RNA: mir-5928 microRNA precursor family
RNA sequence: GGCACAAACUUGAAGUAGAGUACUUUAGUAGGUUCGGACAAUCCUACGAACCUAUUUUACUUCGAAUUUGUGCCC
Number, nucleotide and partner (000 for none) at each position: 001g074002g073003c072004a071005c070006a069007a068008a067009c000010u000011u064012g063013a062014a061015g060016u059017a058018g057019a056020g055021u054022a053023c000024u000025u050026u049027a000028g047029u046030a045031g000032g043033u000034u041035c000036g000037g000038a000039c000040a000041a034042u000043c032044c000045u030046a029047c028048g000049a026050a025051c000052c000053u022054a021055u020056u019057u018058u017059a016060c015061u014062u013063c012064g011065a000066a000067u008068u007069u006070g005071u004072g003073c002074c001075c000